[Rfam]
RNA: mir-275 microRNA precursor family
Organism: Bombyx mori
Nucleotides: 086
Base pairs, nucleotide, nucleotide: 010077011076012075014073016071017070018069019068020067021066022065030056031055032054035052036051037050038049
Number, partner (000 for none) and nucleotide at each position: 001000c002000a003000g004000g005000c006000g007000g008000c009000a010077g011076c012075g013000c014073c015000g016071c017070g018069c019068g020067c021066u022065a023000c024000u025000c026000c027000g028000g029000c030056g031055c032054c033000a034000g035052g036051a037050c038049u039000g040000u041000c042000c043000u044000c045000a046000c047000c048000g049038a050037g051036u052035c053000a054032g055031g056030u057000a058000c059000c060000u061000g062000a063000a064000g065022u066021a067020g068019c069018g070017c071016g072000c073014g074000g075012u076011g077010u078000c079000u080000c081000c082000u083000c084000c085000u086000a